This 136-nucleotide RNA from Drosophila ananassae belongs to the Rfam family "Small nucleolar RNA psi18S-841/snoR66". Rfam describes the family as follows. psi18S-841 is a member of the H/ACA class of snoRNA. This family is responsible for guiding the modification of uridine 841 in Drosophila 18S rRNA to pseudouridine. Clan: SNORA28 clan. By type it is an H/ACA-box small nucleolar RNA. The organism belongs to ananassae species complex, within Eukaryota. The family has 24 seed sequences and 108 matches in Rfam 15.1.
[Rfam]
RNA sequence: GGCAAGCGCACUCUGUGUCACACAGACAGCCACUUGUGAUUACAAUUUGUAAGUUUGCCAGAUCAAGGGGAUGCGUCUUAUCCAUGUGGUCCAUUCCCCCAAAGGGUGACUGCAUUGAAAACACAUCUUACAUCAC
Numbered sequence: 001g002g003c004a005a006g007c008g009c010a011c012u013c014u015g016u017g018u019c020a021c022a023c024a025g026a027c028a029g030c031c032a033c034u035u036g037u038g039a040u041u042a043c044a045a046u047u048u049g050u051a052a053g054u055u056u057g058c059c060a061g062a063u064c065a066a067g068g069g070g071a072u073g074c075g076u077c078u079u080a081u082c083c084a085u086g087u088g089g090u091c092c093a094u095u096c097c098c099c100c101a102a103a104g105g106g107u108g109a110c111u112g113c114a115u116u117g118a119a120a121a122c123a124c125a126u127c128u129u130a131c132a133u134c135a136c
Stems, first nucleotide, its partner, number of pairs: 002058006010050002014044003017040006025033001066133001067129003071126003081118002084115008092106001